[Rfam]
RNA sequence: GCUGCACGCCUUUCCAGGCGUUUCCUCCCUAAACUCGGGCCGUACGCAAGUGCGGCCUUUUCUUUUUUUGCUU
Numbered sequence: 001g002c003u004g005c006a007c008g009c010c011u012u013u014c015c016a017g018g019c020g021u022u023u024c025c026u027c028c029c030u031a032a033a034c035u036c037g038g039g040c041c042g043u044a045c046g047c048a049a050g051u052g053c054g055g056c057c058u059u060u061u062c063u064u065u066u067u068u069u070g071c072u073u
Stems, first nucleotide, its partner, number of pairs: 008019004037058009
Dot-bracket structure: .......((((....)))).................(((((((((....)))))))))...............
RNA: Makes More Granules Regulator RNA (mmgR)
Organism: Aliidongia dinghuensis